[Rfam]
RNA sequence: ACCUGUCGCGGAGGGCCGCGUGCGCGGCGCCGCGACACAUGACAGAACACGUGCUACGGGAACAAAGUGGCACUUCAGGGCGUU
Number, nucleotide and partner (000 for none) at each position: 001a000002c000003c000004u037005g036006u035007c034008g033009c032010g031011g030012a000013g000014g000015g028016c027017c026018g025019c024020g000021u000022g000023c000024g019025c018026g017027g016028c015029g000030c011031c010032g009033c008034g007035a006036c005037a004038c000039a000040u000041g000042a000043c000044a000045g000046a000047a000048c000049a000050c000051g073052u072053g071054c070055u069056a068057c067058g000059g000060g000061a000062a000063c000064a000065a000066a000067g057068u056069g055070g054071c053072a052073c051074u000075u000076c000077a000078g000079g000080g000081c000082g000083u000084u000
A member of the RNA family "nrdJ RNA", 84 nucleotides long. A search with the family's covariance model found it, with a score of 68 bits. Rfam classes the family as a small RNA.